Shown here is a 60-nucleotide RNA, a member of the family "cow-rumen-1 RNA".
By type it is a small RNA.
The family's consensus secondary structure is taken from published work.
RNA sequence: UCACUGGUUCCCGCGUUAGAGUUUGACGGGAUAAAUCCAGUACCGGACAUGACGAAAAGG
Numbered sequence: 001u002c003a004c005u006g007g008u009u010c011c012c013g014c015g016u017u018a019g020a021g022u023u024u025g026a027c028g029g030g031a032u033a034a035a036u037c038c039a040g041u042a043c044c045g046g047a048c049a050u051g052a053c054g055a056a057a058a059g060g
Base pairs, nucleotide, nucleotide: 004040005039006038007037009031010030011029012028013027015022016021